The record is a 97-nucleotide RNA from Coffea arabica, which matches "Small nucleolar RNA snoR31/Z110/Z27" in Rfam. This family contains several related snoRNAs including R31, Z27 and Z110. The family has 8 seed sequences and 571 matches in Rfam 15.1. Rfam classes the family as a C/D-box small nucleolar RNA.
RNA sequence: UCAUACAGAUGAUGAAAUCUUAAAAUCUUAGGACACCUUCUGACACAGUUAGACAAUGCUGUGUAUGAGAAAAGAUUUUAAAUUUUCUGAUGUUUGA
Numbered sequence: 001u002c003a004u005a006c007a008g009a010u011g012a013u014g015a016a017a018u019c020u021u022a023a024a025a026u027c028u029u030a031g032g033a034c035a036c037c038u039u040c041u042g043a044c045a046c047a048g049u050u051a052g053a054c055a056a057u058g059c060u061g062u063g064u065a066u067g068a069g070a071a072a073a074g075a076u077u078u079u080a081a082a083u084u085u086u087c088u089g090a091u092g093u094u095u096g097a
Stems, first nucleotide, its partner, number of pairs: 001097003005093003041047002